[Rfam]
RNA sequence: GCACGUUCUCAGGGCGGGGUGGAACUCCCCACCGGCGGUAGGGGCGGCAACGCCCGAGCCCGCGAGCGCCAUCGUCGAAGGUGACGAUGGGUCAGCAGAUCCGGUCGAACUCCGGAGCCGACGGUCACAGUCCGGAUGGAAGAGAGCGGCG
Numbered sequence: 001g002c003a004c005g006u007u008c009u010c011a012g013g014g015c016g017g018g019g020u021g022g023a024a025c026u027c028c029c030c031a032c033c034g035g036c037g038g039u040a041g042g043g044g045c046g047g048c049a050a051c052g053c054c055c056g057a058g059c060c061c062g063c064g065a066g067c068g069c070c071a072u073c074g075u076c077g078a079a080g081g082u083g084a085c086g087a088u089g090g091g092u093c094a095g096c097a098g099a100u101c102c103g104g105u106c107g108a109a110c111u112c113c114g115g116a117g118c119c120g121a122c123g124g125u126c127a128c129a130g131u132c133c134g135g136a137u138g139g140a141a142g143a144g145a146g147c148g149g150c151g
Stems, first nucleotide, its partner, number of pairs: 004148007017029003031131002033120002035063004058118002066096002100116005122134003
Shown here is a 151-nucleotide RNA from Aeromicrobium sp. Root344, a member of the family "FMN riboswitch aptamer (RFN element)". The organism belongs to Aeromicrobium, within Bacteria.